A member of the RNA family "UnaL2 LINE 3' element" from Megalops atlanticus, 54 nucleotides long. The literature on the family includes a 2004 paper in RNA by Baba et al., "Solution structure of an RNA stem-loop derived from the 3' conserved region of eel LINE UnaL2". Rfam links the family to the GO term transposition, RNA-mediated. It scores 55 bits against the family's covariance model. The base pairs follow the family's consensus structure, which is taken from published work. The organism belongs to Megalops, within Eukaryota. By type it is a cis-regulatory element.

RNA sequence: AACUGUAACCAAUGUAAGUCGCUCUGAAUAAGAGUGUCUGCUAAAUGCCAAUGA
Numbered sequence: 001a002a003c004u005g006u007a008a009c010c011a012a013u014g015u016a017a018g019u020c021g022c023u024c025u026g027a028a029u030a031a032g033a034g035u036g037u038c039u040g041c042u043a044a045a046u047g048c049c050a051a052u053g054a
Base pairs, nucleotide, nucleotide: 013043014041015040016039020036021035022034023033024032025031